[Rfam]
RNA sequence: GCCAAUCGGGUUAGUCUUGUACGACCAGCUCCUGUCGAACUCCCCCAGAUCCGGAAGGAAGCAAGGGUAGACGGUUGUAGCGGUGCGAUGCAAGUAGCUAGCCCGAUU
Numbered sequence: 001g002c003c004a005a006u007c008g009g010g011u012u013a014g015u016c017u018u019g020u021a022c023g024a025c026c027a028g029c030u031c032c033u034g035u036c037g038a039a040c041u042c043c044c045c046c047a048g049a050u051c052c053g054g055a056a057g058g059a060a061g062c063a064a065g066g067g068u069a070g071a072c073g074g075u076u077g078u079a080g081c082g083g084u085g086c087g088a089u090g091c092a093a094g095u096a097g098c099u100a101g102c103c104c105g106a107u108u
Stems, first nucleotide, its partner, number of pairs: 008104008017093005022087002024084002
The record is a 108-nucleotide RNA from Salibacter halophilus, which matches "Bacteroidales small SRP" in Rfam. The source organism's lineage runs through Bacteria, Flavobacteriia, Flavobacteriales, Salibacteraceae and Salibacter. The family is grouped with related families in Rfam's "SRP clan". Rfam classes the family as a non-coding RNA gene. Pairs were carried over by alignment from the consensus structure, which is taken from published work. A search with the family's covariance model found it, with a score of 96 bits.